[Rfam]
Overview
A member of the RNA family "c-di-AMP riboswitch aptamer (ydaO/yuaA leader)" from Paenibacillus spiritus, 159 nucleotides long. It scores 76 bits against the family's covariance model. On this family, see Barrick et al., Proc Natl Acad Sci U S A 2004: "New RNA motifs suggest an expanded scope for riboswitches in bacterial genetic control". Rfam links the family to the GO terms regulation of gene expression and cyclic-di-AMP binding.
RNA sequence: GUUGAAUAUGCGCUGAAUUUUCCAAGGAAAAACGGGGGAACCAACUGACCGCUGUUGGGGUCAAAGGGGUGAAUCGACGCUGGGCCGCUUGGUCCGCGCCGUAGGGCUUCCACAGUCCGAAUCCGCCAGCUAACCUCGUAAGCUGCUGUGGAAUGAUGA
Numbered sequence: 001g002u003u004g005a006a007u008a009u010g011c012g013c014u015g016a017a018u019u020u021u022c023c024a025a026g027g028a029a030a031a032a033c034g035g036g037g038g039a040a041c042c043a044a045c046u047g048a049c050c051g052c053u054g055u056u057g058g059g060g061u062c063a064a065a066g067g068g069g070u071g072a073a074u075c076g077a078c079g080c081u082g083g084g085c086c087g088c089u090u091g092g093u094c095c096g097c098g099c100c101g102u103a104g105g106g107c108u109u110c111c112a113c114a115g116u117c118c119g120a121a122u123c124c125g126c127c128a129g130c131u132a133a134c135c136u137c138g139u140a141a142g143c144u145g146c147u148g149u150g151g152a153a154u155g156a157u158g159a
Stems, first nucleotide, its partner, number of pairs: 012143003018031003032139006042066001067124003075101002078098003104118004